Rfam assigns this 375-nucleotide sequence from Sulfurimonas aquatica to the family "transfer-messenger RNA".
The match comes from Rfam's covariance-model search (136 bits).
[Rfam]
RNA sequence: GGGGACGACAUGGCUUCGACUGGAGCUAGUAGUCUAUGAUUGCAUGUCGGACUGAGCACUUCCGUUACACGGCUCAAAAUUGCUUAAACGCAAACAAUACAAAUUACCGCCCAGCUUUAGCAGUAGCUUAAGUUUUACCCCCUCUUAGAGGACGGGCUGCUUCACCUAUGGACUCUAGAUAAAUAGGACUCGAAGUAUAACCCUUAUGUAGAUAUAUAUAAAGUCUGUCUCAGCUUUAUACGAAUUCCGAGACUCGUUCUGUGUAGCUUUGCAAGGUGUGUGAAGCAGAAUUAAACUUUAACAACUUCUCUAAGCAUGUAGACGUCAUAGAAAAUUAGUUUUAGGACUGCGGUUCGAUCCCGCACGUCUCCACCA
Numbered sequence: 001g002g003g004g005a006c007g008a009c010a011u012g013g014c015u016u017c018g019a020c021u022g023g024a025g026c027u028a029g030u031a032g033u034c035u036a037u038g039a040u041u042g043c044a045u046g047u048c049g050g051a052c053u054g055a056g057c058a059c060u061u062c063c064g065u066u067a068c069a070c071g072g073c074u075c076a077a078a079a080u081u082g083c084u085u086a087a088a089c090g091c092a093a094a095c096a097a098u099a100c101a102a103a104u105u106a107c108c109g110c111c112c113a114g115c116u117u118u119a120g121c122a123g124u125a126g127c128u129u130a131a132g133u134u135u136u137a138c139c140c141c142c143u144c145u146u147a148g149a150g151g152a153c154g155g156g157c158u159g160c161u162u163c164a165c166c167u168a169u170g171g172a173c174u175c176u177a178g179a180u181a182a183a184u185a186g187g188a189c190u191c192g193a194a195g196u197a198u199a200a201c202c203c204u205u206a207u208g209u210a211g212a213u214a215u216a217u218a219u220a221a222a223g224u225c226u227g228u229c230u231c232a233g234c235u236u237u238a239u240a241c242g243a244a245u246u247c248c249g250a251g252a253c254u255c256g257u258u259c260u261g262u263g264u265a266g267c268u269u270u271g272c273a274a275g276g277u278g279u280g281u282g283a284a285g286c287a288g289a290a291u292u293a294a295a296c297u298u299u300a301a302c303a304a305c306u307u308c309u310c311u312a313a314g315c316a317u318g319u320a321g322a323c324g325u326c327a328u329a330g331a332a333a334a335u336u337a338g339u340u341u342u343a344g345g346a347c348u349g350c351g352g353u354u355c356g357a358u359c360c361c362g363c364a365c366g367u368c369u370c371c372a373c374c375a
Stems, first nucleotide, its partner, number of pairs: 001371007020344010033331008043318005048064004053076005135155002139151002142148001158197006165187004173211002176208002217240007227253005256291007264283001266281002271310001274307001277303002348364005

Overview:
Bacterial tmRNA, also known as 10Sa RNA or SsrA, is named for its dual tRNA and mRNA-like properties.